[Rfam]
RNA sequence: ACAAAGGCUCUUUUAAGAGCCACUAAAAACGCAAUAAAAAGUGCUGU
Number, nucleotide and partner (000 for none) at each position: 001a000002c000003a000004a000005a000006g021007g020008c019009u018010c017011u016012u000013u000014u000015a000016a011017g010018a009019g008020c007021c006022a000023c000024u000025a000026a000027a000028a000029a000030c000031g000032c000033a000034a000035u000036a000037a000038a000039a000040a000041g000042u000043g000044c000045u000046g000047u000